[Rfam]
RNA sequence: CCCAAGCCCGGGCUCUUUCCACUGAGCCACGCUACUAUGUGCAGAAGCAGCGUGGCUCAUUGGAAAGAGCACGGGCUUUGGA
Numbered sequence: 001c002c003c004a005a006g007c008c009c010g011g012g013c014u015c016u017u018u019c020c021a022c023u024g025a026g027c028c029a030c031g032c033u034a035c036u037a038u039g040u041g042c043a044g045a046a047g048c049a050g051c052g053u054g055g056c057u058c059a060u061u062g063g064a065a066a067g068a069g070c071a072c073g074g075g076c077u078u079u080g081g082a
Stems, first nucleotide, its partner, number of pairs: 002081002005077006012070008023059008

The record is an 82-nucleotide sequence from Ornithorhynchus anatinus, which matches "mir-130 microRNA precursor family" in Rfam. On this family, see Lagos-Quintana et al., Curr Biol 2002: "Identification of tissue-specific microRNAs from mouse". A search with the family's covariance model found it, with a score of 42 bits.